[Rfam]
RNA sequence: UUGCACAUAUUCUCGCUGUUCUGAUUCUGUAAUAAUCAGGACAGGCUAAACAUUCACUAUAUUAAGAUCAUGUGUGUGUCCCCAGACCUAAUUCUUUCUCUAUGUCUGAUUUUAUAAAUGUUCAUAAUAAGU
Dot-bracket structure: ..(............(((((((((((.......)))))))))))............).........((.(.((.........(((((.((..........)).)))))...........))).)).......
Numbered sequence: 001u002u003g004c005a006c007a008u009a010u011u012c013u014c015g016c017u018g019u020u021c022u023g024a025u026u027c028u029g030u031a032a033u034a035a036u037c038a039g040g041a042c043a044g045g046c047u048a049a050a051c052a053u054u055c056a057c058u059a060u061a062u063u064a065a066g067a068u069c070a071u072g073u074g075u076g077u078g079u080c081c082c083c084a085g086a087c088c089u090a091a092u093u094c095u096u097u098c099u100c101u102a103u104g105u106c107u108g109a110u111u112u113u114a115u116a117a118a119u120g121u122u123c124a125u126a127a128u129a130a131g132u
Stems, first nucleotide, its partner, number of pairs: 003057001016044011067125002070122001072121002083108005089102002